Small nucleolar RNA SNORA5: a 136-nucleotide RNA sequence from Oryzias melastigma. The family's RNA type in Rfam is H/ACA-box small nucleolar RNA. Rfam describes the family as follows. ACA5 is a member of the H/ACA class of snoRNA that guide the sites of modification of uridines to pseudouridines. Lineage of the source: Eukaryota > Vertebrata > Actinopterygii > Teleostei > Oryzias.
[Rfam]
RNA sequence: GGCAGCUUUGUCAAAUUCAGUGCCUCCUCCUUCAUGGACGUCACUGGCCAAAAUAGCUGCUACAGUGAAGAUGUAGCUUAUGGGCCCCACUGUGCCUCAACGCAGCAGCUGGGGAUAAUUUAUGCUACAAACAUUU
Numbered sequence: 001g002g003c004a005g006c007u008u009u010g011u012c013a014a015a016u017u018c019a020g021u022g023c024c025u026c027c028u029c030c031u032u033c034a035u036g037g038a039c040g041u042c043a044c045u046g047g048c049c050a051a052a053a054u055a056g057c058u059g060c061u062a063c064a065g066u067g068a069a070g071a072u073g074u075a076g077c078u079u080a081u082g083g084g085c086c087c088c089a090c091u092g093u094g095c096c097u098c099a100a101c102g103c104a105g106c107a108g109c110u111g112g113g114g115a116u117a118a119u120u121u122a123u124g125c126u127a128c129a130a131a132c133a134u135u136u
Stems, first nucleotide, its partner, number of pairs: 002060004018046005024040001025038003073128005085114005